[Rfam]
RNA sequence: UUUCGACAGGGGCAUACUCGGAGAAAUCCGACGACGCAAAGCCAUGGGUCCUCGGUUCCGCAAAGUGCGGUUCACGGAUUGCCAGGUUGCCGAA
Numbered sequence: 001u002u003u004c005g006a007c008a009g010g011g012g013c014a015u016a017c018u019c020g021g022a023g024a025a026a027u028c029c030g031a032c033g034a035c036g037c038a039a040a041g042c043c044a045u046g047g048g049u050c051c052u053c054g055g056u057u058c059c060g061c062a063a064a065g066u067g068c069g070g071u072u073c074a075c076g077g078a079u080u081g082c083c084a085g086g087u088u089g090c091c092g093a094a
Stems, first nucleotide, its partner, number of pairs: 012037002018031005040088004045084003048079003055073001058070004
Shown here is a 94-nucleotide RNA sequence from Desulfuromonas soudanensis, a member of the family "c-di-GMP-I riboswitch aptamer". The organism belongs to Desulfuromonas, within Bacteria. About the family: GEMM was predicted in a large-scale screen for bacterial structured RNA regulatory elements.